[Rfam]
RNA sequence: GGUAUCUGACGUGAACGAUCGUAUAGUACGAGAGGAACUACGAUUGGUUGCCACUGGUGUACCAGUUGUCCGACAGGGCAGUUGCUGGGCAGCCACGCAACACGGGGUAAGAGCUGAACGCAUCUAAGCUCGAAACCCACAUGGAAAAGAGAUACCACCAAGGUCACUCGUAGAAGACGAGUUCGAUAGACUCGGGGUGUACGCAACGAGGCAACGAGUUGUUCAGCCCGCGAGCACUAACAGACCAGCCA
Numbered sequence: 001g002g003u004a005u006c007u008g009a010c011g012u013g014a015a016c017g018a019u020c021g022u023a024u025a026g027u028a029c030g031a032g033a034g035g036a037a038c039u040a041c042g043a044u045u046g047g048u049u050g051c052c053a054c055u056g057g058u059g060u061a062c063c064a065g066u067u068g069u070c071c072g073a074c075a076g077g078g079c080a081g082u083u084g085c086u087g088g089g090c091a092g093c094c095a096c097g098c099a100a101c102a103c104g105g106g107g108u109a110a111g112a113g114c115u116g117a118a119c120g121c122a123u124c125u126a127a128g129c130u131c132g133a134a135a136c137c138c139a140c141a142u143g144g145a146a147a148a149g150a151g152a153u154a155c156c157a158c159c160a161a162g163g164u165c166a167c168u169c170g171u172a173g174a175a176g177a178c179g180a181g182u183u184c185g186a187u188a189g190a191c192u193c194g195g196g197g198u199g200u201a202c203g204c205a206a207c208g209a210g211g212c213a214a215c216g217a218g219u220u221g222u223u224c225a226g227c228c229c230g231c232g233a234g235c236a237c238u239a240a241c242a243g244a245c246c247a248g249c250c251a
Stems, first nucleotide, its partner, number of pairs: 001156007010143004016046008047101005055095003062088005067080005104138003111131005162246004166182005187239003191234004195229003203222005210215001
Description
A member of the RNA family "Archaeal large subunit ribosomal RNA" from Haloprofundus sp. MHR1, 251 nucleotides of a longer RNA. NCBI's taxonomy places the organism under Archaea, Methanobacteriati, Methanobacteriota, Haloferacaceae, Haloprofundus. Rfam links the family to the GO terms ribosome and structural constituent of ribosome.